RNA: Small nucleolar RNA SNORA31
RNA sequence: AUGCAUCUAUUUGACAGACCUGGAGCAAACGUCCGUUGCUCUUCUGGUUCUUGAAGAGAUGCAACAGUAACGGGUUCCUUGCGCUUUCUACCUGUCUGGUCCCGUGGCAGCCUGGAUUGAAUAAAGGAACACAAGU
Numbered sequence: 001a002u003g004c005a006u007c008u009a010u011u012u013g014a015c016a017g018a019c020c021u022g023g024a025g026c027a028a029a030c031g032u033c034c035g036u037u038g039c040u041c042u043u044c045u046g047g048u049u050c051u052u053g054a055a056g057a058g059a060u061g062c063a064a065c066a067g068u069a070a071c072g073g074g075u076u077c078c079u080u081g082c083g084c085u086u087u088c089u090a091c092c093u094g095u096c097u098g099g100u101c102c103c104g105u106g107g108c109a110g111c112c113u114g115g116a117u118u119g120a121a122u123a124a125a126g127g128a129a130c131a132c133a134a135g136u
Stems, first nucleotide, its partner, number of pairs: 002063007012053002017049004023041006076128005084119001087116004092110005
Dot-bracket structure: .(((((((...((...((((..((((((.......))))))....))))..))...)))))))............(((((...(..((((.(((((.........)))))..))))..)....)))))........